[Rfam]
Nucleotides: 061
Base pairs, nucleotide, nucleotide: 002019003018004017005016025047026046027045030042031041032040033038
Number, partner (000 for none) and nucleotide at each position: 001000a002019u003018u004017g005016u006000g007000a008000c009000a010000u011000g012000u013000u014000a015000a016005a017004c018003a019002a020000a021000a022000a023000a024000g025047c026046c027045c028000a029000a030042c031041g032040g033038g034000u035000a036000u037000g038033c039000g040032c041031c042030g043000c044000c045027g046026g047025g048000c049000g050000u051000u052000a053000a054000u055000g056000a057000c058000a059000g060000a061000g